[Rfam]
RNA sequence: GCCAGGAAGAGGAAGAAAGAGGUAGUCUAAGAGCAGUGGGAAUGGGAACAUAGAGGAAAAAUGAGCUCUCAGUAUUCACUUCUGGAAGUUGAGGUGGAUAUUUGUCUCAGUAUUUUUCCCGAUGCCUCCCAUUCCUAUCGUUCUUAGGUGCUCCUUCCUCUUCCUUUCAGCU
Dot-bracket structure: ........(((((.(((...((...(((((((((..(((((((((((.(((.(.(((((((...................................................)))))))).)))..)))))))))))..)))))))))...)).))).))))).........
Numbered sequence: 001g002c003c004a005g006g007a008a009g010a011g012g013a014a015g016a017a018a019g020a021g022g023u024a025g026u027c028u029a030a031g032a033g034c035a036g037u038g039g040g041a042a043u044g045g046g047a048a049c050a051u052a053g054a055g056g057a058a059a060a061a062u063g064a065g066c067u068c069u070c071a072g073u074a075u076u077c078a079c080u081u082c083u084g085g086a087a088g089u090u091g092a093g094g095u096g097g098a099u100a101u102u103u104g105u106c107u108c109a110g111u112a113u114u115u116u117u118c119c120c121g122a123u124g125c126c127u128c129c130c131a132u133u134c135c136u137a138u139c140g141u142u143c144u145u146a147g148g149u150g151c152u153c154c155u156u157c158c159u160c161u162u163c164c165u166u167u168c169a170g171c172u
Stems, first nucleotide, its partner, number of pairs: 009163005015157003021153002026148009037137011049124003053120001055119007
A member of the RNA family "MIR2118 microRNA precursor family" from Oryza glumipatula, 172 nucleotides long. Gene Ontology terms of the family: RISC complex and miRNA-mediated post-transcriptional gene silencing. NCBI's taxonomy places the organism under Eukaryota, Tracheophyta, Spermatophyta, Liliopsida, Oryza. A reference for the family is Xue et al. (2009), "Characterization and expression profiles of miRNAs in rice seeds", Nucleic Acids Res. The family's consensus secondary structure was predicted with RNAalifold. The match comes from Rfam's covariance-model search (147 bits).